[Rfam]
RNA: MIR7504 microRNA precursor family
RNA sequence: AAUAGAAGAACGACAAAUCAGAUUUUUCUUCUGAUUUUUAGCAUUUUUAGUUGAAUUUGAAUUUUUUCAAGAGUAAAAAACAGAAAAUCAGGAUGAAAAAUCUAAUUUGUCAUUCUCCUAUU
Numbered sequence: 001a002a003u004a005g006a007a008g009a010a011c012g013a014c015a016a017a018u019c020a021g022a023u024u025u026u027u028c029u030u031c032u033g034a035u036u037u038u039u040a041g042c043a044u045u046u047u048u049a050g051u052u053g054a055a056u057u058u059g060a061a062u063u064u065u066u067u068c069a070a071g072a073g074u075a076a077a078a079a080a081c082a083g084a085a086a087a088u089c090a091g092g093a094u095g096a097a098a099a100a101u102c103u104a105a106u107u108u109g110u111c112a113u114u115c116u117c118c119u120a121u122u
Stems, first nucleotide, its partner, number of pairs: 001122005007116004012111007020103008029093010041081001044078004